[Rfam]
RNA sequence: GCCGGGCGUCGUGGCGGGCGUCUGUGAUGCAAGUGACUGGCAGGCAGACGGUGGUGGAUGGAGUGAGAGGAGGAGUUCUGUUGGGUGCUCGGCGACGGAGACCGAGCGUCCAGACCAAGCGCGGUGUCGAUAAGGUGUCACUGGGGGAGCCCGGAGGCAGCUGGUCGUACAAUGAGGGACGCACGGCUCAGGGCCGAGAGGCAGCAGGCAAAAGUCCCCGCAUCGCGACAGUGGUCGGAUAGCGCUUGCGAGUCGUUGACAUCUGCCAGCCUCCUCAAUACCUUCAGACUCAUCGUCGA
Dot-bracket structure: ((((((((((......)))))))....(((.........)))))).((((((((....(((((...(((((((....(((.((((((.(..(((((......(((((((((.(((((.(((((((((((((.((.((((.(((((....))))).)))).)).))))((...)).(((((.....(((....(((....)))....)))....))))).)))))))).)..)))))))...)))))))...))))).).)))))).)))))))))).....)))))...))))))))..
Metazoan signal recognition particle RNA: a 299-nucleotide RNA from Parascaris univalens.
For this family Rfam cites "Towards the structure of the mammalian signal recognition particle" (Wild et al., Curr Opin Struct Biol, 2002).
The family has 91 seed sequences and 383,523 matches in Rfam 15.1.
Taxonomically the source falls in Parascaris (Eukaryota, Protostomia, Chromadorea, Ascarididae).
The match comes from Rfam's covariance-model search (220 bits).